[Rfam]
RNA sequence: UUGUCUCAUUAGUGUAGAUCCUCGUCUAGUUAUGGUAGACGUACACCUAAGUACACCUAACUACGUAAUAUGUUUAAAUUAUCUUGUUAAACUUAGAAAUAAUGACAUCAAUGUAAAUAUUGUGU
Dot-bracket structure: ....(..((..(.((..((...(((.((.((.................................................................)).)))))..))..)).)..))...)...

Shown here is a 125-nucleotide RNA from Salix brachista, a member of the family "MIR480 microRNA precursor family". Its family is annotated with miRNA-mediated post-transcriptional gene silencing and RISC complex in the Gene Ontology. Pairs were carried over by alignment from the consensus structure, which was predicted with WAR. Rfam 15.1 lists 3,070 matches to the family in 171 species.